[Rfam]
RNA sequence: CCUUUGGAGUGUGACACCAGACGUUAGUAGAACGCUGAAUUUUCAACGAAUUUUCAGCUUCGAGAACGCACACGAGGAAAAAGGAA
Numbered sequence: 001c002c003u004u005u006g007g008a009g010u011g012u013g014a015c016a017c018c019a020g021a022c023g024u025u026a027g028u029a030g031a032a033c034g035c036u037g038a039a040u041u042u043u044c045a046a047c048g049a050a051u052u053u054u055c056a057g058c059u060u061c062g063a064g065a066a067c068g069c070a071c072a073c074g075a076g077g078a079a080a081a082a083g084g085a086a
Base pairs, nucleotide, nucleotide: 001084002083003082004081005080009073010072011071012070013069022068023067024066030061031060032059034058035057036056037055038054039053
Rfam assigns this 86-nucleotide RNA to the family "RAGATH-18 RNA". By type it is a small RNA. Rfam's curators write: Actinobacteria, Firmicutes, Fusobacteria, Thermotogae (1 example).